[Rfam]
RNA sequence: CAAGGAAUGAGUUUAAGCUCAAAACAUCCUGCAAAUAUACAUACACGAAAUUAGAGAAAAAAGGGGGGAGGGUAAAAAAAAGGAAAAGGAAAUAUUAAUAUCUUCUUUCCUUUUUUUUUCCCCCUUUUUUUUUUCUUUUCUUUGGUGUAAUUUUUUAAUACAGGAAGGAAGGUCUGAGAUGCUGGCAAAAAGAAAAAAUAAGAAAAAGAGAAGAAUGAAGGUGAGCUUUUUAAGCACACCCUUAUUAGCUUUUUUUUUUUUUUAUUUUAACAUUCUUUAUACUAAUUUUUGAGAAGAAAGUUAUUGUAAAAAUAUCAAUUGGCUACUAGAAAUUUCAAUUUUAUGUUUCCAUCGUGUUUUAUAUUAUUUUGAAAAUAGCCAAUAAGCAAGUAUACACUGGUGAGUUCGAUUUUUGAGGUUUUUCCAACUUGUCAAGAACUGGUAAUGCUUUGUAUAUUUUUAUAUAUAUGCGUGCUCGUUUUGAGAUAACGGAAAAAUAACUUAAUUCAGACUACUCCUAAGUUCAUUCCAUCAC
Numbered sequence: 001c002a003a004g005g006a007a008u009g010a011g012u013u014u015a016a017g018c019u020c021a022a023a024a025c026a027u028c029c030u031g032c033a034a035a036u037a038u039a040c041a042u043a044c045a046c047g048a049a050a051u052u053a054g055a056g057a058a059a060a061a062a063g064g065g066g067g068g069a070g071g072g073u074a075a076a077a078a079a080a081a082g083g084a085a086a087a088g089g090a091a092a093u094a095u096u097a098a099u100a101u102c103u104u105c106u107u108u109c110c111u112u113u114u115u116u117u118u119u120c121c122c123c124c125u126u127u128u129u130u131u132u133u134u135c136u137u138u139u140c141u142u143u144g145g146u147g148u149a150a151u152u153u154u155u156u157a158a159u160a161c162a163g164g165a166a167g168g169a170a171g172g173u174c175u176g177a178g179a180u181g182c183u184g185g186c187a188a189a190a191a192g193a194a195a196a197a198a199u200a201a202g203a204a205a206a207a208g209a210g211a212a213g214a215a216u217g218a219a220g221g222u223g224a225g226c227u228u229u230u231u232a233a234g235c236a237c238a239c240c241c242u243u244a245u246u247a248g249c250u251u252u253u254u255u256u257u258u259u260u261u262u263u264a265u266u267u268u269a270a271c272a273u274u275c276u277u278u279a280u281a282c283u284a285a286u287u288u289u290u291g292a293g294a295a296g297a298a299a300g301u302u303a304u305u306g307u308a309a310a311a312a313u314a315u316c317a318a319u320u321g322g323c324u325a326c327u328a329g330a331a332a333u334u335u336c337a338a339u340u341u342u343a344u345g346u347u348u349c350c351a352u353c354g355u356g357u358u359u360u361a362u363a364u365u366a367u368u369u370u371g372a373a374a375a376u377a378g379c380c381a382a383u384a385a386g387c388a389a390g391u392a393u394a395c396a397c398u399g400g401u402g403a404g405u406u407c408g409a410u411u412u413u414u415g416a417g418g419u420u421u422u423u424c425c426a427a428c429u430u431g432u433c434a435a436g437a438a439c440u441g442g443u444a445a446u447g448c449u450u451u452g453u454a455u456a457u458u459u460u461u462a463u464a465u466a467u468a469u470g471c472g473u474g475c476u477c478g479u480u481u482u483g484a485g486a487u488a489a490c491g492g493a494a495a496a497a498u499a500a501c502u503u504a505a506u507u508c509a510g511a512c513u514a515c516u517c518c519u520a521a522g523u524u525c526a527u528u529c530c531a532u533c534a535c
Stems, first nucleotide, its partner, number of pairs: 004530012018417007027165005042149005048143001170513002174510005179393005185387002286299005315385001317383001319382006342363004418498007
RNA: Plasmodium RNase_P